[Rfam]
RNA sequence: GGGUCGGUAGCUCAGGUGGUUAGAGCGUACGCCUGAUAAGCGUAAGGUCGGAGGUUCAAGUCCUCCUCGACCCA
Numbered sequence: 001g002g003g004u005c006g007g008u009a010g011c012u013c014a015g016g017u018g019g020u021u022a023g024a025g026c027g028u029a030c031g032c033c034u035g036a037u038a039a040g041c042g043u044a045a046g047g048u049c050g051g052a053g054g055u056u057c058a059a060g061u062c063c064u065c066c067u068c069g070a071c072c073c074a
Base pairs, nucleotide, nucleotide: 001073002072003071004070005069006068007067010026011025012024013023028044029043030042031041032040050066051065052064053063054062

Rfam assigns this 74-nucleotide RNA sequence from Albidovulum inexpectatum to the family "tRNA". The source organism's lineage runs through Bacteria, Pseudomonadati, Pseudomonadota, Alphaproteobacteria and Albidovulum. The family's RNA type in Rfam is transfer RNA. The literature on the family includes a 1993 paper in Trends Biochem Sci by Hou, "The tertiary structure of tRNA and the development of the genetic code". A search with the family's covariance model found it, with a score of 70 bits.